[Rfam]
RNA sequence: UUUUAAUGAUGACAUUUAUCACUUGGUCUGUGUUUCUGAAAUCACAUUCUGAUGAUACCAACAUUAAAGCUGAAAAA
Dot-bracket structure: ((((.....................................................................))))